Source information: Small nucleolar RNA SNORA74: a 204-nucleotide sequence from Phyllostomus discolor.
[Rfam]
RNA sequence: UCCAGCAGUAGUCAGCCAUCCAGACAGACUCAUUUCUGUGGUGGUGUUACACUGCUGGGAGAUGAAUGUUCUGUCUUCUUCCUCCAGUUGCCUCCGUCACUGUUCUGGUGGCAUCAGGCACUGGUGCAAGGCAGAACUGUGCUUCCUCUGGAGCGUGCUAAGCAUUCACUUUGACUGCUUAGUUCUAGUGUGGGAGCAUACACA
Number, nucleotide and partner (000 for none) at each position: 001u059002c058003c057004a056005g055006c054007a053008g052009u051010a000011g050012u049013c000014a000015g045016c044017c043018a042019u041020c040021c038022a037023g036024a035025c000026a000027g000028a000029c000030u000031c000032a000033u000034u000035u024036c023037u022038g021039u000040g020041g019042u018043g017044g016045u015046g000047u000048u000049a012050c011051a009052c008053u007054g006055c005056u004057g003058g002059g001060a000061g000062a000063u000064g000065a000066a000067u000068g137069u136070u135071c134072u133073g132074u131075c130076u129077u000078c000079u000080u000081c000082c000083u000084c000085c126086a125087g000088u123089u120090g119091c118092c117093u116094c000095c000096g112097u111098c110099a109100c108101u107102g000103u000104u000105c000106u000107g101108g100109u099110g098111g097112c096113a000114u000115c000116a093117g092118g091119c090120a089121c000122u000123g088124g000125u086126g085127c000128a000129a076130g075131g074132c073133a072134g071135a070136a069137c068138u000139g199140u198141g197142c196143u195144u194145c193146c192147u000148c000149u000150g000151g000152a000153g000154c000155g185156u000157g183158c000159u181160a180161a179162g178163c177164a176165u000166u000167c000168a000169c000170u000171u000172u000173g000174a000175c000176u164177g163178c162179u161180u160181a159182g000183u157184u000185c155186u000187a000188g000189u000190g000191u000192g146193g145194g144195a143196g142197c141198a140199u139200a000201c000202a000203c000204a000
The family's RNA type in Rfam is H/ACA-box small nucleolar RNA. It scores 116 bits against the family's covariance model. Rfam 15.1 lists 1,348 matches to the family in 628 species. U19 belongs to the H/ACA class of snoRNAs. snoRNAs bind a number of proteins (including dyskerin, Gar1p and Nop10p in the case of the H/ACA class) to form snoRNP complexes. This class are thought to guide the sites of modification of uridines to pseudouridines by forming direct base pairing interactions with substrate RNAs. Clan: SNORA74 clan. Pairs were carried over by alignment from the consensus structure, which was predicted with PFOLD.